[Rfam]
RNA sequence: AUUAAUAGCUUCUAGGGUUCCGGUUUACGUCUAAAGAUUUAAACGGCUGGUCCGAGAGAAGCGAAUCAGUCAUGGAGUGUUUUUAGAAAUUGAAACACGGACUGGUUACACGGCGGGAGAAAAGCCCGGGAGGU
Numbered sequence: 001a002u003u004a005a006u007a008g009c010u011u012c013u014a015g016g017g018u019u020c021c022g023g024u025u026u027a028c029g030u031c032u033a034a035a036g037a038u039u040u041a042a043a044c045g046g047c048u049g050g051u052c053c054g055a056g057a058g059a060a061g062c063g064a065a066u067c068a069g070u071c072a073u074g075g076a077g078u079g080u081u082u083u084u085a086g087a088a089a090u091u092g093a094a095a096c097a098c099g100g101a102c103u104g105g106u107u108a109c110a111c112g113g114c115g116g117g118a119g120a121a122a123a124g125c126c127c128g129g130g131a132g133g134u
Base pairs, nucleotide, nucleotide: 008062009061010060011059012058015053016052020050021049022047023044024043025042026041027040064107065106066105067104068103069102070101071100109129111132115127116126117125
Guanidine-I riboswitch aptamer: a 134-nucleotide RNA sequence from Coleofasciculus sp. FACHB-SPT36.
The source organism's lineage runs through Bacteria, Cyanobacteriota, Cyanophyceae, Coleofasciculales and Coleofasciculus.
Rfam links the family to the GO term regulation of gene expression.
This family represents a conserved RNA structure found upstream of the ykkC and yxkD genes in Bacillus subtilis and related genes in other bacteria.